RNA sequence: AUUAAAUAAACAUUUGUACCGUAGACAGCAGGUGCUGAAAAGCUUAAUUCCCUGCCGAGGUAAUGCGUAUAGAUUGAUUGUCUGUUUAGCAGACUUAUGCAUUGAGCCUCCAUGUCUUCGCGAUAUGGGGGCUUUUAAUUGGUAUAA
Number, nucleotide and partner (000 for none) at each position: 001a000002u000003u000004a000005a000006a000007u000008a000009a000010a000011c000012a000013u000014u000015u000016g000017u000018a000019c000020c000021g000022u000023a000024g000025a000026c000027a000028g055029c054030a053031g052032g051033u000034g043035c042036u041037g000038a000039a000040a000041a036042g035043c034044u000045u000046a000047a000048u000049u000050c000051c032052c031053u030054g029055c028056c000057g000058a000059g000060g000061u000062a000063a000064u000065g000066c000067g000068u000069a000070u000071a000072g000073a000074u000075u000076g000077a000078u000079u000080g000081u000082c000083u000084g000085u000086u000087u000088a000089g000090c000091a000092g000093a000094c000095u000096u000097a000098u000099g000100c000101a000102u000103u000104g000105a000106g132107c131108c130109u129110c128111c127112a126113u125114g124115u123116c000117u000118u000119c000120g000121c000122g000123a115124u114125a113126u112127g111128g110129g109130g108131g107132c106133u000134u000135u000136u000137a000138a000139u000140u000141g000142g000143u000144a000145u000146a000147a000

Notes
Shown here is a 147-nucleotide sequence from Heyndrickxia ginsengihumi, a member of the family "Ribosomal protein L10 leader". Taxonomically the source falls in Heyndrickxia (Bacteria, Bacillati, Bacillota, Bacilli). On this family, see Zengel and Lindahl, Prog Nucleic Acid Res Mol Biol 1994: "Diverse mechanisms for regulating ribosomal protein synthesis in Escherichia coli". It is annotated as a cis-regulatory leader.